[Rfam]
RNA: GIR1 branching ribozyme
RNA sequence: CUGUUAUUUAUGACCGUUGUUGUGCGAUGGGGUUCAUACCUUUAUCUGCCAAAACGGGACCUCUGUUGAGGUAUAACCAAUAUUCCGUACUAAGGAUUUCGGUCCGGAACGUCUAGAGACUACACGGCAGACCAAUUUUGUGGUGGUAUGAAUGGAUAGUCCCUAGUUACCAUCUAGGCAUCCCAUACAAAAUGGUUA
Numbered sequence: 001c002u003g004u005u006a007u008u009u010a011u012g013a014c015c016g017u018u019g020u021u022g023u024g025c026g027a028u029g030g031g032g033u034u035c036a037u038a039c040c041u042u043u044a045u046c047u048g049c050c051a052a053a054a055c056g057g058g059a060c061c062u063c064u065g066u067u068g069a070g071g072u073a074u075a076a077c078c079a080a081u082a083u084u085c086c087g088u089a090c091u092a093a094g095g096a097u098u099u100c101g102g103u104c105c106g107g108a109a110c111g112u113c114u115a116g117a118g119a120c121u122a123c124a125c126g127g128c129a130g131a132c133c134a135a136u137u138u139u140g141u142g143g144u145g146g147u148a149u150g151a152a153u154g155g156a157u158a159g160u161c162c163c164u165a166g167u168u169a170c171c172a173u174c175u176a177g178g179c180a181u182c183c184c185a186u187a188c189a190a191a192a193u194g195g196u197u198a
Base pairs, nucleotide, nucleotide: 003196004195005194006193007192008191009190016025017024021073027186028185029184030183031182032181033152034151035150036149039145048161050159054088055087056086057085064082065077066076067075089112090111118157121127132143133142134141136140163177164176165175166174